RNA sequence: AAAAAUAAAAGCCUGCCAGGAGUCCUGGCAGGCUUUUAUUCGGACGCCUCUUUCGAGACGUCCUAUCAUGGGAGAGGAGAAACCGGACGAAGAGCUUAUGGGGAAACGUAAGUCUUCUCCGCGG
Numbered sequence: 001a002a003a004a005a006u007a008a009a010a011g012c013c014u015g016c017c018a019g020g021a022g023u024c025c026u027g028g029c030a031g032g033c034u035u036u037u038a039u040u041c042g043g044a045c046g047c048c049u050c051u052u053u054c055g056a057g058a059c060g061u062c063c064u065a066u067c068a069u070g071g072g073a074g075a076g077g078a079g080a081a082a083c084c085g086g087a088c089g090a091a092g093a094g095c096u097u098a099u100g101g102g103g104a105a106a107c108g109u110a111a112g113u114c115u116u117c118u119c120c121g122c123g124g
Base pairs, nucleotide, nucleotide: 011033012032013031014030015029016028017027018026019025035072036071037070038069039068044061045060046059048057049056084121085120086119087118089117090116091115092114094113095112096111097110098109